[Rfam]
RNA sequence: UCGUGCUAGACGGGGCAGUAGCGGCGCCUUGUAACCCGCGAAUCCGCUAUAGCGGGGUCGAAGUUCGGCUGAGGGACUUCCGUGGGAAGUUUGCAGAUGAGAAAGUGGUGUUGAGGAUUGGGUCCUGCGCAACGCAGCCUCCUGAACCGUGUCAGGUCCGGAAGGAAGCAGCACUAAGGGAAUCGUUGCGUGUGCCGCAGGGCGGCCUGGUCUGAGCUAACUCCUCCUCUCGGCUUCUCAAGGGGUUUCGAAGCCGGAUGCACGG
Dot-bracket structure: ((((((..((((((((..(...)..)))))....(((((............))))))))....(((((((..(((((.(((.((((((...((.....(.(...(((((.....(((((((((((((((((.(((((..((((.....((((....(((....)))....))))...))))....)))))))...))))))...)))))))))..))).))...).)...))..)))))).))))))))..))))))).))))))
RNA: Bacterial large signal recognition particle RNA
Organism: Tumebacillus flagellatus